[Rfam]
RNA sequence: AGUUCCGGUGGUUCCAGCGGUCUUGUGCAAGGAACGGACAGAGAAGAGGACCCCUUCCCCGCCCCGCCCCUCCCGCCCCACGGGCGGGCUCACCCCGUCGGGUGAACCUGGUCAAACCGGCUGGCCAAAAGCGGGGUCGCGCGCUCUACGCUCAGCGCAACACCACCCGGCAUAUGCGUCGGCCCCCGCCGGGAUGUGGAGUCCCGGGCGGGGGCCUGGCCAACGAGGAAGAGAACAGCUUCCUG
Dot-bracket structure: ......(.((......(((......................................................))).............((((((....))))))..............(((((...........................)))))........................(((((.(((.((((.......))))..))).)))))....)).)..(((((.......)))))..